[Rfam]
RNA sequence: UCAUAUCAUUCUGGAGAGCGUCAGCACGCGCUGACCACCGAAGGGGCGCGCAAAGAACAGACUUUGCCACAAUCUCUCAGGUAUCAAGGACAGAACGGGACUU
Numbered sequence: 001u002c003a004u005a006u007c008a009u010u011c012u013g014g015a016g017a018g019c020g021u022c023a024g025c026a027c028g029c030g031c032u033g034a035c036c037a038c039c040g041a042a043g044g045g046g047c048g049c050g051c052a053a054a055g056a057a058c059a060g061a062c063u064u065u066g067c068c069a070c071a072a073u074c075u076c077u078c079a080g081g082u083a084u085c086a087a088g089g090a091c092a093g094a095a096c097g098g099g100a101c102u103u
Stems, first nucleotide, its partner, number of pairs: 006098002009095005020035004037082003040078002044076003050070001

Source information: The family of this 103-nucleotide sequence from Ephemeroptericola cinctiostellae is "Glycine riboswitch aptamer". The base pairs follow the family's consensus structure. This family represents the bacterial glycine riboswitch. It scores 49 bits against the family's covariance model.